A member of the RNA family "Lysine riboswitch aptamer" from Bacillus sp. V59.32b, 178 nucleotides long.
From the family's description: Riboswitches are metabolite binding domains within certain messenger RNAs that serve as precision sensors for their corresponding targets. Allosteric rearrangement of mRNA structure is mediated by ligand binding, and this results in modulation of gene expression.
Pairs were carried over by alignment from the consensus structure, which is taken from published work.

RNA sequence: AGUGCUGAUAGAGGUGCGAGAUUCAUUAGUAAGAACUUGGAGAAGUAUGAGCUUCUUUGAUGGGUUCCGAAAGGGGAAAUCGCCGAAGCCAGACAGGACUCAUACCUGUUUGCAGGCUGGUCUGCCAUUAAAUAAAUGGCCGAUUGUCAAGAUUUUUUCUUGGAGAGCUAUCUCACUG
Dot-bracket structure: ......(((((....((((..(((........(((((((.....................))))))).......)))..))))...(((((((((((.......)))))))...))))((((.((((((.....)))))).)))).((((((.....))))))....)))))......